Plastid-psbA-3 3UTR RNA: a 58-nucleotide RNA sequence from Melianthus villosus. On this family, see Richter et al., Plant Commun 2023: "Retrograde signaling in plants: A critical review focusing on the GUN pathway and beyond". Its Rfam clan is "Plastid-psbA 3UTR RNA clan". Lineage of the source: Eukaryota > Viridiplantae > Mesangiospermae > Pentapetalae > Melianthus. The sequence is in the family's curated seed alignment. By type it is a cis-regulatory element.
RNA sequence: AAAGGAGCAAUACCCCAAUUUCUUGUUUUAUCAAGAAGGUUCGUAUUGCUCCUUUUUU
Numbered sequence: 001a002a003a004g005g006a007g008c009a010a011u012a013c014c015c016c017a018a019u020u021u022c023u024u025g026u027u028u029u030a031u032c033a034a035g036a037a038g039g040u041u042c043g044u045a046u047u048g049c050u051c052c053u054u055u056u057u058u
Base pairs, nucleotide, nucleotide: 001055002054003053004052005051006050007049008048009047010046011045012044013043020037021036022035023034024033025032